RNA sequence: CAGUCGGGCGCGGAAUAUGGGCAGUUCCGCUGGUAUAGAUUGCAGCCCCUUAGGCAAUGCUUUGAGCGCGCGGCGGCCCCGGCAGCGUACUCG
Number, nucleotide and partner (000 for none) at each position: 001c042002a041003g040004u039005c038006g000007g000008g000009c000010g030011c029012g028013g027014a026015a025016u024017a000018u000019g000020g000021g000022c000023a000024g016025u015026u014027c013028c012029g011030c010031u000032g000033g000034u000035a000036u000037a000038g005039a004040u003041u002042g001043c000044a000045g000046c000047c000048c000049c000050u000051u000052a000053g000054g000055c000056a000057a000058u000059g000060c000061u000062u000063u093064g092065a091066g090067c000068g000069c087070g086071c085072g000073g083074c000075g000076g000077c000078c000079c000080c000081g000082g000083c073084a000085g071086c070087g069088u000089a000090c066091u065092c064093g063

This 93-nucleotide sequence from Algicella marina belongs to the Rfam family "Rhodo-rpoB RNA".
The family's consensus secondary structure is taken from published work.
The family's RNA type in Rfam is cis-regulatory element.